[Rfam]
RNA: MIR6152 microRNA precursor family
Organism: Nicotiana attenuata
RNA sequence: UGGACAGAUUAUUGUAUUCGACGCGUGAAUAGGGGAUUACACUGUUUUUAAACGGAAAGUGAAUUAAUUAACAUAAUAAACUCCU
Numbered sequence: 001u002g003g004a005c006a007g008a009u010u011a012u013u014g015u016a017u018u019c020g021a022c023g024c025g026u027g028a029a030u031a032g033g034g035g036a037u038u039a040c041a042c043u044g045u046u047u048u049u050a051a052a053c054g055g056a057a058a059g060u061g062a063a064u065u066a067a068u069u070a071a072c073a074u075a076a077u078a079a080a081c082u083c084c085u
Stems, first nucleotide, its partner, number of pairs: 002084003009079007017071002020069002024054003027047006